The family of this 92-nucleotide sequence from Sulfuricella sp. is "Burkholderia RNA 7 (anti-hemB)". Lineage of the source: Bacteria > Pseudomonadati > Pseudomonadota > Betaproteobacteria > Sulfuricella. This RNA motif was identified by computational search in b-proteobacteria Burkholderia. Co-purified with Hfq, expression confirmed by Northern blot. Pairs were carried over by alignment from the consensus structure, which is taken from published work. It is annotated as a small RNA.

RNA sequence: UCUCCCGCUUCUCCUCCCUGAGCGGGUGCCUUAACCCCUCUAUGUUAAGGCUUUUUUGCCCCCGGUUUCCCCUUUACCGGGGGCUUUUUCUU
Numbered sequence: 001u002c003u004c005c006c007g008c009u010u011c012u013c014c015u016c017c018c019u020g021a022g023c024g025g026g027u028g029c030c031u032u033a034a035c036c037c038c039u040c041u042a043u044g045u046u047a048a049g050g051c052u053u054u055u056u057u058g059c060c061c062c063c064g065g066u067u068u069c070c071c072c073u074u075u076a077c078c079g080g081g082g083g084c085u086u087u088u089u090c091u092u
Stems, first nucleotide, its partner, number of pairs: 004026006028051007058084008